[Rfam]
This 77-nucleotide RNA from Gordonia jinhuaensis belongs to the Rfam family "Fluoride riboswitch aptamer (crcB RNA motif)". The family's consensus secondary structure is taken from published work. NCBI's taxonomy places the organism under Bacteria, Actinomycetota, Actinomycetes, Mycobacteriales, Gordonia. The match comes from Rfam's covariance-model search (50 bits).
Nucleotides: 077
Base pairs, nucleotide, nucleotide: 010025011024012023013022016068017067018066019065020064021063048058049057050056
Number, partner (000 for none) and nucleotide at each position: 001000u002000c003000g004000u005000g006000u007000a008000c009000u010025g011024g012023c013022g014000a015000u016068g017067g018066a019065g020064c021063u022013c023012g024011c025010c026000g027000g028000a029000g030000c031000g032000a033000u034000u035000g036000u037000u038000c039000g040000c041000u042000c043000g044000a045000a046000c047000c048058g049057c050056c051000g052000a053000g054000a055000u056050g057049g058048c059000u060000g061000a062000u063021g064020g065019u066018u067017c068016c069000u070000a071000c072000c073000c074000g075000c076000g077000u